c-di-GMP-I-GGC riboswitch aptamer: a 78-nucleotide sequence from Candidatus Moduliflexus flocculans.

RNA sequence: CAUGUUAACGCCAAACCUAUUGUGAAAUAGGGACGGAAAGUUUGGGGUCUCAAUCAAGAGAUUGCCCGGCUGCCUUGA
Numbered sequence: 001c002a003u004g005u006u007a008a009c010g011c012c013a014a015a016c017c018u019a020u021u022g023u024g025a026a027a028u029a030g031g032g033a034c035g036g037a038a039a040g041u042u043u044g045g046g047g048u049c050u051c052a053a054u055c056a057a058g059a060g061a062u063u064g065c066c067c068g069g070c071u072g073c074c075u076u077g078a
Stems, first nucleotide, its partner, number of pairs: 004074001011036002016031006034064001039071004044067003047062003